[Rfam]
RNA sequence: GGCGGUGUAGCUCAGCUGGCUAGAGCAUUCGGUUCAUACCCGAAAGGUCGUGGGUUCGACUCCCUCUGCCGCUA
Numbered sequence: 001g002g003c004g005g006u007g008u009a010g011c012u013c014a015g016c017u018g019g020c021u022a023g024a025g026c027a028u029u030c031g032g033u034u035c036a037u038a039c040c041c042g043a044a045a046g047g048u049c050g051u052g053g054g055u056u057c058g059a060c061u062c063c064c065u066c067u068g069c070c071g072c073u074a
Stems, first nucleotide, its partner, number of pairs: 001073007010026004028044005050066001052064003
Annotation: Rfam assigns this 74-nucleotide sequence from Brochothrix campestris to the family "tRNA". Pairs were carried over by alignment from the consensus structure, which is taken from published work. By type it is a transfer RNA.